Rfam assigns this 248-nucleotide RNA sequence from Actinokineospora alba to the family "Actinobacteria sRNA Ms_IGR-5". A reference for the family is Li et al. (2013), "Identification of small RNAs in Mycobacterium smegmatis using heterologous Hfq", RNA. By type it is a small RNA.

[Rfam]
RNA sequence: ACACGAGAGAGGAGGUGGUCCAACGGUGAAGUCUCAGAGGACUCGUGAGGUGGCUGUCCGCUAGGACCGCCCAUCGAGGAGAUGGUAGCCGGCUCGCACACGGCCGGGCUGACCGACGUCAGUCCCCGUAGGCGCGGCGUGUGGUCGGCGAAUACCAGGCAGUCACCCAGCCCUCGGGCCCCCGGGAAUCAGUCCUCCCCGGCCCGACCGUCCGCGGCGGUCGGGAAACGGCCCGAGGGCUGCACCCU
Numbered sequence: 001a002c003a004c005g006a007g008a009g010a011g012g013a014g015g016u017g018g019u020c021c022a023a024c025g026g027u028g029a030a031g032u033c034u035c036a037g038a039g040g041a042c043u044c045g046u047g048a049g050g051u052g053g054c055u056g057u058c059c060g061c062u063a064g065g066a067c068c069g070c071c072c073a074u075c076g077a078g079g080a081g082a083u084g085g086u087a088g089c090c091g092g093c094u095c096g097c098a099c100a101c102g103g104c105c106g107g108g109c110u111g112a113c114c115g116a117c118g119u120c121a122g123u124c125c126c127c128g129u130a131g132g133c134g135c136g137g138c139g140u141g142u143g144g145u146c147g148g149c150g151a152a153u154a155c156c157a158g159g160c161a162g163u164c165a166c167c168c169a170g171c172c173c174u175c176g177g178g179c180c181c182c183c184g185g186g187a188a189u190c191a192g193u194c195c196u197c198c199c200c201g202g203c204c205c206g207a208c209c210g211u212c213c214g215c216g217g218c219g220g221u222c223g224g225g226a227a228a229c230g231g232c233c234c235g236a237g238g239g240c241u242g243c244a245c246c247c248u
Stems, first nucleotide, its partner, number of pairs: 014058006059150004064146002067144004072139001074137003168242013182202005